The record is a 94-nucleotide RNA from Kineothrix alysoides, which matches "c-di-GMP-I riboswitch aptamer" in Rfam. The source organism's lineage runs through Bacteria, Bacillati, Bacillota, Clostridia and Kineothrix. Rfam's curators write: GEMM was predicted in a large-scale screen for bacterial structured RNA regulatory elements.
Nucleotides: 094
Stems, first nucleotide, its partner, number of pairs: 012040002017035006043088004049084003052079003059072004
Number, partner (000 for none) and nucleotide at each position: 001000u002000a003000g004000g005000g006000a007000c008000a009000a010000u011000g012040g013039u014000c015000a016000a017035c018034c019033c020032a021031u022030u023000g024000a025000a026000a027000g028000a029000u030022g031021g032020u033019g034018g035017g036000g037000a038000c039013g040012c041000a042000a043088a044087g045086c046085c047000g048000u049084a050083g051082g052079a053078u054077c055000u056000a057000a058000g059072a060071c061070g062069u063000u064000c065000u066000u067000a068000a069062a070061c071060g072059u073000u074000a075000u076000u077054g078053a079052u080000a081000a082051c083050c084049u085046g086045g087044u088043u089000g090000c091000c092000g093000a094000u
The family's consensus secondary structure is taken from published work. For this family Rfam cites "Riboswitches in Eubacteria Sense the Second Messenger Cyclic Di-GMP" (Sudarsan et al., Science, 2008).